[Rfam]
RNA sequence: GGAGGUCGGCCCUCCGAAAUCGUUUUACAGGAAAAGAUUUCAAACCACUCUAAGCUGCUGUAGUCAAAAGGUAUGGUGGUGAGCGUUAGAGAAAAGGUGUCUAACAACAUAUCAGGU
Numbered sequence: 001g002g003a004g005g006u007c008g009g010c011c012c013u014c015c016g017a018a019a020u021c022g023u024u025u026u027a028c029a030g031g032a033a034a035a036g037a038u039u040u041c042a043a044a045c046c047a048c049u050c051u052a053a054g055c056u057g058c059u060g061u062a063g064u065c066a067a068a069a070g071g072u073a074u075g076g077u078g079g080u081g082a083g084c085g086u087u088a089g090a091g092a093a094a095a096g097g098u099g100u101c102u103a104a105c106a107a108c109a110u111a112u113c114a115g116g117u
Stems, first nucleotide, its partner, number of pairs: 001015005016041006023034004046116001048091006054080002057077003061073002064070001096113005
RNA: Group II catalytic intron D1-D4-2
Organism: Hydra vulgaris